Shown here is a 184-nucleotide sequence from Clostridium thailandense, a member of the family "Lysine riboswitch aptamer". Gene Ontology term of the family: lysine biosynthetic process. A search with the family's covariance model found it, with a score of 123 bits. Lineage of the source: Bacteria > Bacillati > Clostridia > Eubacteriales > Clostridium. Rfam's curators write: Riboswitches are metabolite binding domains within certain messenger RNAs that serve as precision sensors for their corresponding targets. A reference for the family is Mandal et al. (2003), "Riboswitches Control Fundamental Biochemical Pathways in Bacillus subtilis and Other Bacteria", Cell.

RNA sequence: AGGUGAGGUAGAGGCGCGAUGUCUAAGAGUAUAUUUAUGGAGGCUGGAAGCCUAUGAAAUAUGUAGAAAGGAGCCAUCGCCGAAGUCUUAAGCACCUAAAACUUAAGGCUGGGUCUGCAUCAAAUAGUUGCAGGACUGUCAUUAGGAUGACUGACCAUCCUCCUAAUGGAGCGCUAUCUCAAUA
Dot-bracket structure: .....((((((....((((((.((.......(((.(((....................))).)))......)).))))))...(((((((((.........)))))))))((.((((((.(.....).)))))).)).(((((((((.............)))))))))....)))))).....